[Rfam]
U7 small nuclear RNA: a 61-nucleotide sequence from Rattus norvegicus. A search with the family's covariance model found it, with a score of 57 bits. For this family Rfam cites "3' end processing of mouse histone pre-mRNA: evidence for additional base-pairing between U7 snRNA and pre-mRNA" (Spycher et al., Nucleic Acids Res, 1994).
RNA sequence: AAGGGUUAUAGCUCUUUUAGAAUUUGUCUAGCAGAUUUUCUGACUUUUGUUGGAAAACAAC
Dot-bracket structure: .................................(.(((((((((....))))))))))...